[Rfam]
RNA sequence: CUUGUGGAGAAUACAAGAACUUGUGAGUAGAUAUGAUUUUGUCAAUCGAAAACAUAUUCGUUGAAGCAAGAA
Numbered sequence: 001c002u003u004g005u006g007g008a009g010a011a012u013a014c015a016a017g018a019a020c021u022u023g024u025g026a027g028u029a030g031a032u033a034u035g036a037u038u039u040u041g042u043c044a045a046u047c048g049a050a051a052a053c054a055u056a057u058u059c060g061u062u063g064a065a066g067c068a069a070g071a072a
Base pairs, nucleotide, nucleotide: 001070002069003068004067005066009059010058011057012056013055022054023053024052030047031046032045034044035043
RAGATH-18 RNA: a 72-nucleotide sequence from Anaerostipes sp. 992a. By type it is a small RNA. The source organism's lineage runs through Bacteria, Bacillota, Lachnospirales, Lachnospiraceae and Anaerostipes.